[Rfam]
RNA: MIR398 microRNA precursor family
Organism: Theobroma cacao
RNA sequence: GAAAGCCCUGCAGGGGCGACCUGAGAACACAUCAAAACACACAGGAUAAGGUUUGUCCUUCAAGAGUGGCCACAUGUGUUCUCAUGUCGCUCCUGUUGGGCUCCU
Numbered sequence: 001g002a003a004a005g006c007c008c009u010g011c012a013g014g015g016g017c018g019a020c021c022u023g024a025g026a027a028c029a030c031a032u033c034a035a036a037a038c039a040c041a042c043a044g045g046a047u048a049a050g051g052u053u054u055g056u057c058c059u060u061c062a063a064g065a066g067u068g069g070c071c072a073c074a075u076g077u078g079u080u081c082u083c084a085u086g087u088c089g090c091u092c093c094u095g096u097u098g099g100g101c102u103c104c105u
Stems, first nucleotide, its partner, number of pairs: 007099002011095004016090004023083010